[Rfam]
RNA sequence: ACCGCCACGGAUGGCGGUGGUUCCACGCAGAAACGAUGUUUUAAAGCAGGACAGCUUACAAAGCUUUAAAACUCGUGGUUUAGUUUUUGACACGGAUGUCAAAAACUAAACCGUU
Numbered sequence: 001a002c003c004g005c006c007a008c009g010g011a012u013g014g015c016g017g018u019g020g021u022u023c024c025a026c027g028c029a030g031a032a033a034c035g036a037u038g039u040u041u042u043a044a045a046g047c048a049g050g051a052c053a054g055c056u057u058a059c060a061a062a063g064c065u066u067u068a069a070a071a072c073u074c075g076u077g078g079u080u081u082a083g084u085u086u087u088u089g090a091c092a093c094g095g096a097u098g099u100c101a102a103a104a105a106c107u108a109a110a111c112c113g114u115u
Stems, first nucleotide, its partner, number of pairs: 001018006034075003038072010078111014
Dot-bracket structure: ((((((......))))))...............(((.((((((((((...............)))))))))))))..((((((((((((((......))))))))))))))....